[Rfam]
RNA sequence: AUCGUUGAUCUGGGUGAGAGAUACGCGUAUCCAAUGCUUAGAUACGGGUCGCUCUCACCUAGGCUAGUGUUGC
Numbered sequence: 001a002u003c004g005u006u007g008a009u010c011u012g013g014g015u016g017a018g019a020g021a022u023a024c025g026c027g028u029a030u031c032c033a034a035u036g037c038u039u040a041g042a043u044a045c046g047g048g049u050c051g052c053u054c055u056c057a058c059c060u061a062g063g064c065u066a067g068u069g070u071u072g073c
Base pairs, nucleotide, nucleotide: 003069004068005067006066007065009063010062011061012060013059014058015057016056017055018054019053020052023049024048026046027045028044029043030042031041033039
RNA: MIR4416 microRNA precursor family